The family of this 71-nucleotide sequence from Cimex lectularius is "mir-929 microRNA precursor family".
[Rfam]
RNA sequence: GGGGUUCAAAUUGACUCUAGUAGGGAGUCUUUCUAAUAUCGACUCCCUAAUGGAGUCAUAUUGAUCCACAU
Numbered sequence: 001g002g003g004g005u006u007c008a009a010a011u012u013g014a015c016u017c018u019a020g021u022a023g024g025g026a027g028u029c030u031u032u033c034u035a036a037u038a039u040c041g042a043c044u045c046c047c048u049a050a051u052g053g054a055g056u057c058a059u060a061u062u063g064a065u066c067c068a069c070a071u
Base pairs, nucleotide, nucleotide: 012058013057014056015055016054017053018052021049022048023047024046025045026044027043028042029041
A reference for the family is Marco et al. (2010), "Functional shifts in insect microRNA evolution", Genome Biol Evol. Rfam links the family to the GO terms miRNA-mediated post-transcriptional gene silencing and RISC complex.